RNA sequence: GGUCAUGAGCGCCAGCGCGAAGCCCCGGCUCGCUGGCCGGCAACCCUUCCGUUCGCGACGGGGUGCCCCGGGUGAGGACCGGGCCGUCGCCGACCGGCGACGGCAAACGGCGAAC
Numbered sequence: 001g002g003u004c005a006u007g008a009g010c011g012c013c014a015g016c017g018c019g020a021a022g023c024c025c026c027g028g029c030u031c032g033c034u035g036g037c038c039g040g041c042a043a044c045c046c047u048u049c050c051g052u053u054c055g056c057g058a059c060g061g062g063g064u065g066c067c068c069c070g071g072g073u074g075a076g077g078a079c080c081g082g083g084c085c086g087u088c089g090c091c092g093a094c095c096g097g098c099g100a101c102g103g104c105a106a107a108c109g110g111c112g113a114a115c
Base pairs, nucleotide, nucleotide: 001080002079003078004077009038011037012036013035014034015033016032021030022029039067040066041065044063045062046061048058049057083104084103085102086101087100088099089098090097091096
RNA: SAM (S-adenosyl methionine) riboswitch aptamer
Organism: Actinoplanes utahensis